Overview: Shown here is a 300-nucleotide RNA sequence from Thamnidium elegans, a member of the family "Metazoan signal recognition particle RNA". The literature on the family includes a 2002 paper in Curr Opin Struct Biol by Wild et al., "Towards the structure of the mammalian signal recognition particle". The signal recognition particle (SRP) is a universally conserved ribonucleoprotein. It is involved in the co-translational targeting of proteins to membranes. The eukaryotic SRP consists of a 300-nucleotide 7S RNA and six proteins: SRPs 72, 68, 54, 19, 14, and 9. Archaeal SRP consists of a 7S RNA and homologues of the eukaryotic SRP19 and SRP54 proteins.

[Rfam]
RNA sequence: ACCGGAAAGUUUCACGCCUUUCUGUAAGCAUGGUAUGCGGUUUAUAAAGAGAUGAAUUCAUUCUCCGGUGGGAUUACGGUAUAUUUGGUGACUUUGUCGAAAACAGUGUCUUACAGAGUCUGGUGUCAACAUUCGAGCCUAAGCGGAAGCAUAGGUUGGGAGGUUGUUCAAUACUGGGGUAUUGCCCGAGGGUAGUAAUACAGCAGGGAAAACUCAGAGCACUGGUUCGGCUGUGAGAUAGCACGUUGGAGAAUCAUUCGAAUAUAUCGCCAUCGGGAAUGGGAACUCCCUCUUUUUUUU
Numbered sequence: 001a002c003c004g005g006a007a008a009g010u011u012u013c014a015c016g017c018c019u020u021u022c023u024g025u026a027a028g029c030a031u032g033g034u035a036u037g038c039g040g041u042u043u044a045u046a047a048a049g050a051g052a053u054g055a056a057u058u059c060a061u062u063c064u065c066c067g068g069u070g071g072g073a074u075u076a077c078g079g080u081a082u083a084u085u086u087g088g089u090g091a092c093u094u095u096g097u098c099g100a101a102a103a104c105a106g107u108g109u110c111u112u113a114c115a116g117a118g119u120c121u122g123g124u125g126u127c128a129a130c131a132u133u134c135g136a137g138c139c140u141a142a143g144c145g146g147a148a149g150c151a152u153a154g155g156u157u158g159g160g161a162g163g164u165u166g167u168u169c170a171a172u173a174c175u176g177g178g179g180u181a182u183u184g185c186c187c188g189a190g191g192g193u194a195g196u197a198a199u200a201c202a203g204c205a206g207g208g209a210a211a212a213c214u215c216a217g218a219g220c221a222c223u224g225g226u227u228c229g230g231c232u233g234u235g236a237g238a239u240a241g242c243a244c245g246u247u248g249g250a251g252a253a254u255c256a257u258u259c260g261a262a263u264a265u266a267u268c269g270c271c272a273u274c275g276g277g278a279a280u281g282g283g284a285a286c287u288c289c290c291u292c293u294u295u296u297u298u299u300u
Stems, first nucleotide, its partner, number of pairs: 001041003004023006011016001028038003044297001046295006054288002057285003061279003065276006077269012093253003097249001102247003106244004110237007118228001120225007127166004132161003136157006143150002167173001174217005183210001185208003192201003